This 131-nucleotide RNA from Clostridiales bacterium S5-A14a belongs to the Rfam family "SAM riboswitch aptamer (S box leader)". From the family's description: The SAM riboswitch is found upstream of a number of genes which code for proteins involved in methionine or cysteine biosynthesis in Gram-positive bacteria. A search with the family's covariance model found it, with a score of 79 bits.
RNA sequence: ACCUUAUCAAGAGUGGCGGAGGGAAUAGGCCCUGUGAUGCCCGGCAACCCUAAGGCGGAUGUUUAAAAAGAUAUCUUAACACCAUCUUAAAGGUGCUAAUUCCUACAGAGCAUUGCUUUGAAAGAUGAGGA
Numbered sequence: 001a002c003c004u005u006a007u008c009a010a011g012a013g014u015g016g017c018g019g020a021g022g023g024a025a026u027a028g029g030c031c032c033u034g035u036g037a038u039g040c041c042c043g044g045c046a047a048c049c050c051u052a053a054g055g056c057g058g059a060u061g062u063u064u065a066a067a068a069a070g071a072u073a074u075c076u077u078a079a080c081a082c083c084a085u086c087u088u089a090a091a092g093g094u095g096c097u098a099a100u101u102c103c104u105a106c107a108g109a110g111c112a113u114u115g116c117u118u119u120g121a122a123a124g125a126u127g128a129g130g131a
Stems, first nucleotide, its partner, number of pairs: 002130007013042001015041003021032003026105004043097004048093002051089004101123001106120006
Record summary: Lineage of the source: Bacteria > Bacillota > Clostridia > Peptostreptococcales > Anaerovoracaceae.